[Rfam]
RNA sequence: AAACUUACCUGGCUGGGAGGCUCUCACGAUCAUGAAGGCGGGACCUCCAUGGUGAGGCCGCUGCAUUGCACUUUAGCAACGGCUGACCCGUGUGGCAACCUCGGGUUGAGGUUAGCCAACAGCUAAAUUUUUGCGUGUGGGGCUGCGUUCGCGCGGCCCCGA
Numbered sequence: 001a002a003a004c005u006u007a008c009c010u011g012g013c014u015g016g017g018a019g020g021c022u023c024u025c026a027c028g029a030u031c032a033u034g035a036a037g038g039c040g041g042g043a044c045c046u047c048c049a050u051g052g053u054g055a056g057g058c059c060g061c062u063g064c065a066u067u068g069c070a071c072u073u074u075a076g077c078a079a080c081g082g083c084u085g086a087c088c089c090g091u092g093u094g095g096c097a098a099c100c101u102c103g104g105g106u107u108g109a110g111g112u113u114a115g116c117c118a119a120c121a122g123c124u125a126a127a128u129u130u131u132u133g134c135g136u137g138u139g140g141g142g143c144u145g146c147g148u149u150c151g152c153g154c155g156g157c158c159c160c161g162a
Stems, first nucleotide, its partner, number of pairs: 012123004016048005023042003027038001049091004054087001056084003060080001062078003093118004097113002100110002138161005144155004